[Rfam]
Nucleotides: 149
Stems, first nucleotide, its partner, number of pairs: 003147001007143004017029003031129002033118002035062004057116002065094002098114005120132003
Number, partner (000 for none) and nucleotide at each position: 001000c002000g003147u004000u005000u006000a007143u008142c009141u010140c011000a012000g013000g014000g015000c016000g017029g018028g019027g020000u021000g022000a023000a024000a025000g026000u027019c028018c029017c030000c031129a032128c033118c034117g035062g036061c037060g038059g039000u040000a041000a042000c043000a044000u045000g046000c047000u048000a049000u050000g051000c052000a053000u054000g055000a056000a057116g058115c059038c060037c061036g062035c063000g064000a065094g066093c067000g068000c069000u070000u071000u072000a073000c074000u075000u076000g077000u078000c079000a080000u081000g082000a083000g084000u085000a086000a087000a088000g089000g090000u091000c092000a093066g094065c095000a096000g097000a098114u099113c100112c101111a102110g103000u104000g105000u106000g107000a108000c109000u110102c111101u112100g113099g114098a115058g116057c117034c118033g119000a120132c121131g122130g123000u124000u125000a126000u127000a128032g129031u130122c131121c132120g133000g134000a135000u136000g137000g138000g139000a140010g141009a142008g143007a144000a145000u146000u147003a148000a149000c